Shown here is a 117-nucleotide RNA sequence from Papaver nudicaule, a member of the family "U5 spliceosomal RNA". U5 RNA is a component of both types of known spliceosome. The precise function of this molecule is unknown, though it is known that the 5' loop is required for splice site selection and p220 binding, and that both the 3' stem-loop and the Sm site are important for Sm protein binding and cap methylation. Taxonomically the source falls in Papaver (Eukaryota, Spermatophyta, Ranunculales, Papaveraceae). Pairs were carried over by alignment from the consensus structure, which is taken from published work. Its family is annotated with spliceosomal tri-snRNP complex assembly and U5 snRNP in the Gene Ontology. The family's RNA type in Rfam is spliceosomal small nuclear RNA.
RNA sequence: AGCCGUGCGGUAAGCACAGAGCGAACUAUUCUUUCGCCUUUUACUAAAGAAUACCGUGUGCUUGCCGUUUUCAAGCGGCAUACGCCUAUUUUUGAAGGGUUUUCUCUUUUAUAAUGA
Numbered sequence: 001a002g003c004c005g006u007g008c009g010g011u012a013a014g015c016a017c018a019g020a021g022c023g024a025a026c027u028a029u030u031c032u033u034u035c036g037c038c039u040u041u042u043a044c045u046a047a048a049g050a051a052u053a054c055c056g057u058g059u060g061c062u063u064g065c066c067g068u069u070u071u072c073a074a075g076c077g078g079c080a081u082a083c084g085c086c087u088a089u090u091u092u093u094g095a096a097g098g099g100u101u102u103u104c105u106c107u108u109u110u111a112u113a114a115u116g117a
Stems, first nucleotide, its partner, number of pairs: 003078004008067011027053008100117002103114001